[Rfam]
RNA sequence: GGGUGCUUGAGACUGUUUGUCUCAGGCGUUCAGCGGGAGACAAACAGAGAAAAGCCCCACCUGAUGAUAAAUCAAAGUGAGGCUCCCCUAUGCAUCAACACCAUAAGAGUAGCCUCUUACCUGUUGAAAAUCAACACCGUGUAUG
Numbered sequence: 001g002g003g004u005g006c007u008u009g010a011g012a013c014u015g016u017u018u019g020u021c022u023c024a025g026g027c028g029u030u031c032a033g034c035g036g037g038a039g040a041c042a043a044a045c046a047g048a049g050a051a052a053a054g055c056c057c058c059a060c061c062u063g064a065u066g067a068u069a070a071a072u073c074a075a076a077g078u079g080a081g082g083c084u085c086c087c088c089u090a091u092g093c094a095u096c097a098a099c100a101c102c103a104u105a106a107g108a109g110u111a112g113c114c115u116c117u118u119a120c121c122u123g124u125u126g127a128a129a130a131u132c133a134a135c136a137c138c139g140u141g142u143a144u145g
Stems, first nucleotide, its partner, number of pairs: 001058003005055004013047011026034002059078002062075001063073003079116005085109001087107001089105004120145001122143001124141001
The family of this 145-nucleotide RNA from Klebsiella michiganensis is "sok antitoxin (CssrC)".
About the family: Also identified in Shigella as CssrC.
For this family Rfam cites "An antisense RNA controls synthesis of an SOS-induced toxin evolved from an antitoxin" (Kawano et al., Mol Microbiol, 2007).
NCBI's taxonomy places the organism under Bacteria, Pseudomonadati, Pseudomonadota, Gammaproteobacteria, Klebsiella.
Rfam classes the family as an antitoxin RNA.